[Rfam]
RNA sequence: GGUUUCGAUUGGUGCAAACCGAAUCACCUUAAUUUGUAAUUUAAGAUGAAAAAGACUUUCCCAUUGGUAACAAAUAGUUAUCCAUUAAGCGGGAAAAAUCC
Numbered sequence: 001g002g003u004u005u006c007g008a009u010u011g012g013u014g015c016a017a018a019c020c021g022a023a024u025c026a027c028c029u030u031a032a033u034u035u036g037u038a039a040u041u042u043a044a045g046a047u048g049a050a051a052a053a054g055a056c057u058u059u060c061c062c063a064u065u066g067g068u069a070a071c072a073a074a075u076a077g078u079u080a081u082c083c084a085u086u087a088a089g090c091g092g093g094a095a096a097a098a099u100c101c
Base pairs, nucleotide, nucleotide: 009023010022012020059094060093061092062091063085064084066082067081068080069079070078071077
RNA: Plastid-rps12 3UTR RNA